[Rfam]
RNA: Bacterial large subunit ribosomal RNA, nucleotides 1543 to 1878
RNA sequence: UGAGAGAACGAUGCUGAAGGAACUAGGCAAAUUGCUCGCGUAACUUCGGGAUAAGCGAGACCCUUCACCGGGCAACCGGCGGGGGGUGGCACAAAGCAGGGGGUAGCGACUGUUUAGUAAAAACACAGGGCUGUGCGAAGUCGAGAGACGACGUAUACGGUCUGACGCCUGCCCGGUGCCGGAAGGUUAAGAGGAGGUGUGCAAGCACCGAAUUGAAGCCCCGGUAAACGGCGGCCGUAACUAUAACGGUCCUAAGGUAGCGAAAUUCCUUGUCGGGUAAGUUCCGACCUGCACGAAUGGCGUAACGACUUCCCCACUGUCUCCAGCAUCGGCUCA
Numbered sequence: 001u002g003a004g005a006g007a008a009c010g011a012u013g014c015u016g017a018a019g020g021a022a023c024u025a026g027g028c029a030a031a032u033u034g035c036u037c038g039c040g041u042a043a044c045u046u047c048g049g050g051a052u053a054a055g056c057g058a059g060a061c062c063c064u065u066c067a068c069c070g071g072g073c074a075a076c077c078g079g080c081g082g083g084g085g086g087u088g089g090c091a092c093a094a095a096g097c098a099g100g101g102g103g104u105a106g107c108g109a110c111u112g113u114u115u116a117g118u119a120a121a122a123a124c125a126c127a128g129g130g131c132u133g134u135g136c137g138a139a140g141u142c143g144a145g146a147g148a149c150g151a152c153g154u155a156u157a158c159g160g161u162c163u164g165a166c167g168c169c170u171g172c173c174c175g176g177u178g179c180c181g182g183a184a185g186g187u188u189a190a191g192a193g194g195a196g197g198u199g200u201g202c203a204a205g206c207a208c209c210g211a212a213u214u215g216a217a218g219c220c221c222c223g224g225u226a227a228a229c230g231g232c233g234g235c236c237g238u239a240a241c242u243a244u245a246a247c248g249g250u251c252c253u254a255a256g257g258u259a260g261c262g263a264a265a266u267u268c269c270u271u272g273u274c275g276g277g278u279a280a281g282u283u284c285c286g287a288c289c290u291g292c293a294c295g296a297a298u299g300g301c302g303u304a305a306c307g308a309c310u311u312c313c314c315c316a317c318u319g320u321c322u323c324c325a326g327c328a329u330c331g332g333c334u335c336a
Stems, first nucleotide, its partner, number of pairs: 001336004009331008018322003035059005044049001060087007068079004088092001100315004105310002107307002111125003128163008136153001140149003166302004171232003176229002178225005185220003191214002196209005233251006252256001262289001272288006
Dot-bracket structure: ((((....((((((((.(((..............(((((....(....).....)))))(((((((.((((....)))).)))))))(...).......((((.((((..(((.........)))..(((((((((...(((....)))...)..))))))))..((((.(((..(((((((..(((...((...(((((....)))))...))...))))))))..)))))((((((.......))))))(...).....(.........((((((.....))))))).........))))...)).)).))))....))).)))))))).))))